This 61-nucleotide RNA from Nematostella vectensis belongs to the Rfam family "mir-9418 microRNA precursor family".
[Rfam]
RNA sequence: UCAUACAAGUGCAUCAAUGGAACUGUUUCUUCUGGUUUGGAAGGAAUAUUGAUGUUUUUUA
Numbered sequence: 001u002c003a004u005a006c007a008a009g010u011g012c013a014u015c016a017a018u019g020g021a022a023c024u025g026u027u028u029c030u031u032c033u034g035g036u037u038u039g040g041a042a043g044g045a046a047u048a049u050u051g052a053u054g055u056u057u058u059u060u061a
Stems, first nucleotide, its partner, number of pairs: 014052006026046008